[Rfam]
The family of this 146-nucleotide RNA sequence from Turnera subulata is "Small nucleolar RNA snoR136". The match comes from Rfam's covariance-model search (79 bits).
RNA sequence: AAGGCUUCGGUUUUUUAGAUUGAUAAAAAAGCUUAUGCUAAAGGUAUGUUAGUUUAUGCUUAUUUCGAAGCCUUAAAAAAACCUGUUCCCCUCGCUAUCCAGAGCUGCCUAUGAAUGCUGCAUUUGGACGUCGGGGAACGAUAUUU
Numbered sequence: 001a002a003g004g005c006u007u008c009g010g011u012u013u014u015u016u017a018g019a020u021u022g023a024u025a026a027a028a029a030a031g032c033u034u035a036u037g038c039u040a041a042a043g044g045u046a047u048g049u050u051a052g053u054u055u056a057u058g059c060u061u062a063u064u065u066c067g068a069a070g071c072c073u074u075a076a077a078a079a080a081a082c083c084u085g086u087u088c089c090c091c092u093c094g095c096u097a098u099c100c101a102g103a104g105c106u107g108c109c110u111a112u113g114a115a116u117g118c119u120g121c122a123u124u125u126g127g128a129c130g131u132c133g134g135g136g137a138a139c140g141a142u143a144u145u146u
Base pairs, nucleotide, nucleotide: 002074003072004071005070008067009066010065013062019057020056026055027054028053030050031049032048035047036046037045085139086138087137088136089135090134091133093130094129098128099127100126101125102124107118108117
Dot-bracket structure: .((((..(((..(.....((.....(((.(((..(((.......))))))..)))))....)..)))..))).)..........(((((((.((...(((((....((........)).....)))))))..))))))).......
Rfam links the family to the GO terms nucleolus and RNA processing. The source organism's lineage runs through Eukaryota, Embryophyta, Mesangiospermae, Gunneridae and Turnera.